[Rfam]
A member of the RNA family "permuted transfer-messenger RNA" from Cupriavidus numazuensis, 213 nucleotides long. By type it is a non-coding RNA gene.
RNA sequence: GGUUGUUAUCCCGGCAAUCUGGCGGCGUUCUGGACAGGGGUUCGAAUCCCCUCACCUCCACCUCAGCGUACCGCGACACGCGGUGCGCUGAGGUGGGGGUGUAUUGGUUUCGACAGGGCGUACAAAGGGGCGCAGGCAACCCGUCAGGCGAUCGACGUAAAUGAAGCAAAUUCCAUAAACGCCAACGAUGAGCGUUUCGCACUGGCCGCCUGA
Numbered sequence: 001g002g003u004u005g006u007u008a009u010c011c012c013g014g015c016a017a018u019c020u021g022g023c024g025g026c027g028u029u030c031u032g033g034a035c036a037g038g039g040g041u042u043c044g045a046a047u048c049c050c051c052u053c054a055c056c057u058c059c060a061c062c063u064c065a066g067c068g069u070a071c072c073g074c075g076a077c078a079c080g081c082g083g084u085g086c087g088c089u090g091a092g093g094u095g096g097g098g099g100u101g102u103a104u105u106g107g108u109u110u111c112g113a114c115a116g117g118g119c120g121u122a123c124a125a126a127g128g129g130g131c132g133c134a135g136g137c138a139a140c141c142c143g144u145c146a147g148g149c150g151a152u153c154g155a156c157g158u159a160a161a162u163g164a165a166g167c168a169a170a171u172u173c174c175a176u177a178a179a180c181g182c183c184a185a186c187g188a189u190g191a192g193c194g195u196u197u198c199g200c201a202c203u204g205g206c207c208g209c210c211u212g213a
Base pairs, nucleotide, nucleotide: 001141002140003139004138005137014131015130026120027119028118030116031115032114036052037051038050039049040048053101054100055099056098057097058096059095060094061093062092063091142157143156144155145154